[Rfam]
RNA sequence: AAAAUCUUAAAUAAUGAAAGCCCUACCUCUCUUUCAUCCAUACGAUUCCUAGAUCGCGCCUGUACAAUUAAGAUCAUUCCUGGCAC
Dot-bracket structure: .................................(....(((.(((((....))))).)..))...)....................
Numbered sequence: 001a002a003a004a005u006c007u008u009a010a011a012u013a014a015u016g017a018a019a020g021c022c023c024u025a026c027c028u029c030u031c032u033u034u035c036a037u038c039c040a041u042a043c044g045a046u047u048c049c050u051a052g053a054u055c056g057c058g059c060c061u062g063u064a065c066a067a068u069u070a071a072g073a074u075c076a077u078u079c080c081u082g083g084c085a086c
Stems, first nucleotide, its partner, number of pairs: 034066001039062002041058001043056005
Overview
A member of the RNA family "BsrC" from Salinibacillus xinjiangensis, 86 nucleotides long. From the family's description: The 301 nucleotide sequence from Kouji Nakamura has been trimmed to a highly conserved ~85 nucleotide long core to form this family. The source organism's lineage runs through Bacteria, Bacillati, Bacilli, Caryophanales and Salinibacillus. The family's consensus secondary structure was predicted with CMfinder.